[Rfam]
RNA sequence: AGCAGAGUAGAUGUCGAAGCGUUAAGUGUCUGACGAACGGGGAGUUGUCGCCAGAACGAAAAGCAAAGCUUACGGUUUCGACCAUCGCAUCCCGCUGCU
Numbered sequence: 001a002g003c004a005g006a007g008u009a010g011a012u013g014u015c016g017a018a019g020c021g022u023u024a025a026g027u028g029u030c031u032g033a034c035g036a037a038c039g040g041g042g043a044g045u046u047g048u049c050g051c052c053a054g055a056a057c058g059a060a061a062a063g064c065a066a067a068g069c070u071u072a073c074g075g076u077u078u079c080g081a082c083c084a085u086c087g088c089a090u091c092c093c094g095c096u097g098c099u
Stems, first nucleotide, its partner, number of pairs: 001099005010086003013082007020074003026057002029055004034050003040092003044088001061071004
This 99-nucleotide RNA sequence from Pseudoramibacter alactolyticus belongs to the Rfam family "THF (Tetrahydrofolate) riboswitch aptamer". Pairs were carried over by alignment from the consensus structure, which is taken from published work. The family has 101 seed sequences and 747 matches in Rfam 15.1. From the family's description: Tetrahydrofolate (THF) riboswitch was first reported for Ames et al. as an RNA motif in 5' untranslated (5'-UTR)regions of folate transport and biosynthesis genes in Firmicutes genomes. It scores 87 bits against the family's covariance model. A reference for the family is Trausch and Batey (2014), "A disconnect between high-affinity binding and efficient regulation by antifolates and purines in the tetrahydrofolate riboswitch", Chem Biol.